[Rfam]
RNA sequence: AGGGUGGUAUCCAUCAGGAACUGCACCUGUAAAAAAGCUUAACAACUCAAUAGAUCUGCCUUGAUCUGAAAAACGACAGGGACGGAGAA
Numbered sequence: 001a002g003g004g005u006g007g008u009a010u011c012c013a014u015c016a017g018g019a020a021c022u023g024c025a026c027c028u029g030u031a032a033a034a035a036a037g038c039u040u041a042a043c044a045a046c047u048c049a050a051u052a053g054a055u056c057u058g059c060c061u062u063g064a065u066c067u068g069a070a071a072a073a074c075g076a077c078a079g080g081g082a083c084g085g086a087g088a089a
Stems, first nucleotide, its partner, number of pairs: 001028003004024005010019002056085003059081005065076002